[Rfam]
RNA sequence: GUGAGAUGAUGACAAAGUUUCUCCAUUCGCUGAGUACUGUGGUGCUGCCCUCCUGCACCACCCUGAUUCCUGUUCUAGGGUCUGGGUGCUGUGCAGCCUCCAGAGACCCUCCUGUUUGCUGUUCUUUGCUUGCUUUUUCCAAAGCCCCCAAGUUUUAUACGGUACACAAUAAAAAAUAGCUAAGUGAGGAUGUUAUUGCUGGAACAGUAACAGCAAAGGGAAGCCCCAGUGUCCUACUGGGGGCUGUUGUGGUGUCUGGCUGGCUGCCUACAGGAGUGAAGUGGUACUGGGAGUGUUGGAGCCCCUCUUUUGGUGGAGCUCCAUCCCCACUGAGAUGACUGAUGAUGUCUGAUCAC
Numbered sequence: 001g002u003g004a005g006a007u008g009a010u011g012a013c014a015a016a017g018u019u020u021c022u023c024c025a026u027u028c029g030c031u032g033a034g035u036a037c038u039g040u041g042g043u044g045c046u047g048c049c050c051u052c053c054u055g056c057a058c059c060a061c062c063c064u065g066a067u068u069c070c071u072g073u074u075c076u077a078g079g080g081u082c083u084g085g086g087u088g089c090u091g092u093g094c095a096g097c098c099u100c101c102a103g104a105g106a107c108c109c110u111c112c113u114g115u116u117u118g119c120u121g122u123u124c125u126u127u128g129c130u131u132g133c134u135u136u137u138u139c140c141a142a143a144g145c146c147c148c149c150a151a152g153u154u155u156u157a158u159a160c161g162g163u164a165c166a167c168a169a170u171a172a173a174a175a176a177u178a179g180c181u182a183a184g185u186g187a188g189g190a191u192g193u194u195a196u197u198g199c200u201g202g203a204a205c206a207g208u209a210a211c212a213g214c215a216a217a218g219g220g221a222a223g224c225c226c227c228a229g230u231g232u233c234c235u236a237c238u239g240g241g242g243g244c245u246g247u248u249g250u251g252g253u254g255u256c257u258g259g260c261u262g263g264c265u266g267c268c269u270a271c272a273g274g275a276g277u278g279a280a281g282u283g284g285u286a287c288u289g290g291g292a293g294u295g296u297u298g299g300a301g302c303c304c305c306u307c308u309u310u311u312g313g314u315g316g317a318g319c320u321c322c323a324u325c326c327c328c329a330c331u332g333a334g335a336u337g338a339c340u341g342a343u344g345a346u347g348u349c350u351g352a353u354c355a356c
Stems, first nucleotide, its partner, number of pairs: 010355003017348002020345001024341002027338003030334002034330002040290001042288001043286006050278001051275005057269001059088005065082001068080004093267006106253002112246001114244004119239001121237002293327001295325001297323004302318001
Record summary
Small nucleolar RNA SNORD17: a 356-nucleotide sequence from Pedionomus torquatus. On this family, see Huttenhofer et al., EMBO J 2001: "RNomics: an experimental approach that identifies 201 candidates for novel, small, non-messenger RNAs in mouse". It is annotated as a C/D-box small nucleolar RNA. The family's consensus secondary structure was predicted with RNAalifold. Lineage of the source: Eukaryota > Dipnotetrapodomorpha > Sauria > Archelosauria > Pedionomus. About the family: The snoRNA HBI-43 belongs to the C/D family of snoRNAs, guiding 2'O-ribose methylation at position U3797 of the 28S rRNA. Pseudouridylation in position U3797 is predicted to be guided by the H/ACA snoRNA ACA48.